RNA sequence: GAGUGUUACUGGUGUUAUGGAAUUUGUCUAGCAGGUUUUCUGGUCUUUGCCAGAAAUAG
Numbered sequence: 001g002a003g004u005g006u007u008a009c010u011g012g013u014g015u016u017a018u019g020g021a022a023u024u025u026g027u028c029u030a031g032c033a034g035g036u037u038u039u040c041u042g043g044u045c046u047u048u049g050c051c052a053g054a055a056a057u058a059g
Base pairs, nucleotide, nucleotide: 036059037056038055039054040053041052042051043050044049

Rfam assigns this 59-nucleotide RNA sequence from Saimiri boliviensis to the family "U7 small nuclear RNA". Animal histone pre-mRNAs are spliced by a different mechanism than nuclear pre-mRNAs and self-splicing introns. This processing involves the U7 snRNP, which contains only one RNA species: U7. The 5' end of U7 RNA is thought to base-pair to a conserved spacer element downstream of the cleavage site in histone pre-mRNA. This family contains a number of annotated U7 pseudogenes. It scores 34 bits against the family's covariance model.